[Rfam]
RNA sequence: CCAGGGGGCCGGGCAGCCGCGUGCCGCGAGGUACGAGGAAAGUCCGGGCUCCACGAAACGAGGGUGGCGGGUAACGCCCGCCCGGUGGGUCUUUUCGGAGGCUGAUCGAGGGAAAGUGCCACAGAGAGCAUACCGCCGAUGGCCUGUUCGCAGGCUCAGGUAAGGGUGAAAGGGUGCGGUAAGAGCGCACCGGGGCUUCGGCAACGCGGCCCGCAUGGCAAACCCCACCCGGAGCAAGGCCGAAUAGGGGUGGCGCGCCCGUGCAAGCGGGCAGGUGCGUUUCGCAUCGACCACCCGGGUUGGCUGCUUGAGCUGCGGAGCGAUCCGCAGCCUAGACGAAUGGCUGCCCCCGCGUGGCUGGUGUGCAAGCAUACCGCGCGCGGGACAGAACCCGGCUUACAGGCCCCCUGGCAUC
Numbered sequence: 001c002c003a004g005g006g007g008g009c010c011g012g013g014c015a016g017c018c019g020c021g022u023g024c025c026g027c028g029a030g031g032u033a034c035g036a037g038g039a040a041a042g043u044c045c046g047g048g049c050u051c052c053a054c055g056a057a058a059c060g061a062g063g064g065u066g067g068c069g070g071g072u073a074a075c076g077c078c079c080g081c082c083c084g085g086u087g088g089g090u091c092u093u094u095u096c097g098g099a100g101g102c103u104g105a106u107c108g109a110g111g112g113a114a115a116g117u118g119c120c121a122c123a124g125a126g127a128g129c130a131u132a133c134c135g136c137c138g139a140u141g142g143c144c145u146g147u148u149c150g151c152a153g154g155c156u157c158a159g160g161u162a163a164g165g166g167u168g169a170a171a172g173g174g175u176g177c178g179g180u181a182a183g184a185g186c187g188c189a190c191c192g193g194g195g196c197u198u199c200g201g202c203a204a205c206g207c208g209g210c211c212c213g214c215a216u217g218g219c220a221a222a223c224c225c226c227a228c229c230c231g232g233a234g235c236a237a238g239g240c241c242g243a244a245u246a247g248g249g250g251u252g253g254c255g256c257g258c259c260c261g262u263g264c265a266a267g268c269g270g271g272c273a274g275g276u277g278c279g280u281u282u283c284g285c286a287u288c289g290a291c292c293a294c295c296c297g298g299g300u301u302g303g304c305u306g307c308u309u310g311a312g313c314u315g316c317g318g319a320g321c322g323a324u325c326c327g328c329a330g331c332c333u334a335g336a337c338g339a340a341u342g343g344c345u346g347c348c349c350c351c352g353c354g355u356g357g358c359u360g361g362u363g364u365g366c367a368a369g370c371a372u373a374c375c376g377c378g379c380g381c382g383g384g385a386c387a388g389a390a391c392c393c394g395g396c397u398u399a400c401a402g403g404c405c406c407c408c409u410g411g412c413a414u415c
Stems, first nucleotide, its partner, number of pairs: 001411010011400001012348007020035006040398003044395005049234004058282001060280001062230005067081005082110001083108004111225002116223002118219003133165002135161003141156006173191006192214001193212005199206002238305004248296006274288005312331008
Dot-bracket structure: ((((((((((((((((((.((((((....))))))....[[[.[[[[[((((.....[.[.((((((((((.....)))))(((((..................)))).)((...(((((............(((((...((((((....))))))..)))..)).......((((((.......))))))((((((.((....)).))))).)..)))..)))))))))))))...((((......((((((....................(((((.].].)))))..)))))).....))))......((((((((....))))))))..........)))))))..........................................]]]]]]]].).))))))))))....
RNA: Bacterial RNase P class A